[Rfam]
RNA: Group II catalytic intron D1-D4-7
RNA sequence: CCUGUUUUGCUGCAAACAGUUUCCCACCCUGACAUGCAUUUUUGGCAACGGAAUUGUAUGAAGCUCAGGGGACAAUGAAGCCCGUGGAGGAAUUUCUCCGGGAGAGAGACCCGUGAGGCGAUCUCAAAUCUGGCAGCGUCAGGCGGGAGCGGGA
Numbered sequence: 001c002c003u004g005u006u007u008u009g010c011u012g013c014a015a016a017c018a019g020u021u022u023c024c025c026a027c028c029c030u031g032a033c034a035u036g037c038a039u040u041u042u043u044g045g046c047a048a049c050g051g052a053a054u055u056g057u058a059u060g061a062a063g064c065u066c067a068g069g070g071g072a073c074a075a076u077g078a079a080g081c082c083c084g085u086g087g088a089g090g091a092a093u094u095u096c097u098c099c100g101g102g103a104g105a106g107a108g109a110c111c112c113g114u115g116a117g118g119c120g121a122u123c124u125c126a127a128a129u130c131u132g133g134c135a136g137c138g139u140c141a142g143g144c145g146g147g148a149g150c151g152g153g154a
Stems, first nucleotide, its partner, number of pairs: 002019006028069005033060006040053005082101003086097004102125004111118002129147004134142001